[Rfam]
RNA sequence: GUCAGUUGCGGCGAUGGGGCUCGCCGCAACCGCCGUGCCCGGCUAAUGGCCCCUAUCUGACG
Numbered sequence: 001g002u003c004a005g006u007u008g009c010g011g012c013g014a015u016g017g018g019g020c021u022c023g024c025c026g027c028a029a030c031c032g033c034c035g036u037g038c039c040c041g042g043c044u045a046a047u048g049g050c051c052c053c054u055a056u057c058u059g060a061c062g
Stems, first nucleotide, its partner, number of pairs: 010025004016053006032043004
RNA: Fluoride riboswitch aptamer (crcB RNA motif)